Source information
This 219-nucleotide sequence from Rhizobium sp. PDO1-076 belongs to the Rfam family "Group II catalytic intron D1-D4-6". The literature on the family includes a 2003 paper in Crit Rev Biochem Mol Biol by Lehmann and Schmidt, "Group II introns: structure and catalytic versatility of large natural ribozymes". It scores 128 bits against the family's covariance model.
[Rfam]
RNA sequence: CGACCCCCUCCCGGUAAAGGCGCAGUCCGCCAGCCGGAAGCGAGUCUUGCAUGGGCGACGGCAACGUCGCUCGUGAAGCGUAGACAGCGGAUGUUGAAGCCUUGGGGUAGCCCCGAAAUCAUGUAGUUGCUGAGAGCCUUCGGUCUGUUGGGCCCGGGGGCAGCACUGGCAGGACCGUCACAGACGAGGUCCUUUCAGCUCGGCCGGGGUCUUGGAACA
Numbered sequence: 001c002g003a004c005c006c007c008c009u010c011c012c013g014g015u016a017a018a019g020g021c022g023c024a025g026u027c028c029g030c031c032a033g034c035c036g037g038a039a040g041c042g043a044g045u046c047u048u049g050c051a052u053g054g055g056c057g058a059c060g061g062c063a064a065c066g067u068c069g070c071u072c073g074u075g076a077a078g079c080g081u082a083g084a085c086a087g088c089g090g091a092u093g094u095u096g097a098a099g100c101c102u103u104g105g106g107g108u109a110g111c112c113c114c115g116a117a118a119u120c121a122u123g124u125a126g127u128u129g130c131u132g133a134g135a136g137c138c139u140u141c142g143g144u145c146u147g148u149u150g151g152g153c154c155c156g157g158g159g160g161c162a163g164c165a166c167u168g169g170c171a172g173g174a175c176c177g178u179c180a181c182a183g184a185c186g187a188g189g190u191c192c193u194u195u196c197a198g199c200u201c202g203g204c205c206g207g208g209g210u211c212u213u214g215g216a217a218c219a
Base pairs, nucleotide, nucleotide: 011037012036013035014034015033019031020030021029022028025185026184040088041087044085045084046083047082048080049079050075051074052073053072054071055070056069057068058067059066060065109213110210111209112208113207114206115205129204130203131202132201133200134199136161137160138159141156142155143154166198167197168196169195171193172192173191174190175189176188